[Rfam]
RNA sequence: AGUCGGGGCUUUGUCUUGACGGUGUGCGGGAAGCUCAUUAGUAUCCUGUACCCCGAAAAUUGGCAGGGCGCUCGCUCCUGCCAUUUCGUUUAUGUGUCGUAAGACAAUCAGUGGAGCUAUAGA
Numbered sequence: 001a002g003u004c005g006g007g008g009c010u011u012u013g014u015c016u017u018g019a020c021g022g023u024g025u026g027c028g029g030g031a032a033g034c035u036c037a038u039u040a041g042u043a044u045c046c047u048g049u050a051c052c053c054c055g056a057a058a059a060u061u062g063g064c065a066g067g068g069c070g071c072u073c074g075c076u077c078c079u080g081c082c083a084u085u086u087c088g089u090u091u092a093u094g095u096g097u098c099g100u101a102a103g104a105c106a107a108u109c110a111g112u113g114g115a116g117c118u119a120u121a122g123a
Base pairs, nucleotide, nucleotide: 004018005017006016007015008014009013022053024051026049027048028047029046030045031044034041035040061083062082063081064080065079066078067077068075069074094117095116096105097104098103
Source information: Shown here is a 123-nucleotide RNA from Pseudomonas panipatensis, a member of the family "Pseudomonas rpsL leader". On this family, see Naville and Gautheret, Genome Biol 2010: "Premature terminator analysis sheds light on a hidden world of bacterial transcriptional attenuation". Gene Ontology term of the family: regulation of gene expression. Lineage of the source: Bacteria > Pseudomonadati > Gammaproteobacteria > Pseudomonadaceae > Pseudomonas. Pairs were carried over by alignment from the consensus structure, which is taken from published work. It scores 102 bits against the family's covariance model.